[Rfam]
RNA sequence: UUGCUCCGUCGCGACUGGCGUUGAGAUGGUCACCAUCGGGGAGCGACUGGCACGCAUCGACCGCACGCCUGGGCCGGUACG
Numbered sequence: 001u002u003g004c005u006c007c008g009u010c011g012c013g014a015c016u017g018g019c020g021u022u023g024a025g026a027u028g029g030u031c032a033c034c035a036u037c038g039g040g041g042a043g044c045g046a047c048u049g050g051c052a053c054g055c056a057u058c059g060a061c062c063g064c065a066c067g068c069c070u071g072g073g074c075c076g077g078u079a080c081g
Base pairs, nucleotide, nucleotide: 005050006049008047009046010045011044012043015040016039017069018068019067020066021065026036027035028034029033058076059075061073062072
RNA: ZMP/ZTP riboswitch aptamer (pfl RNA motif)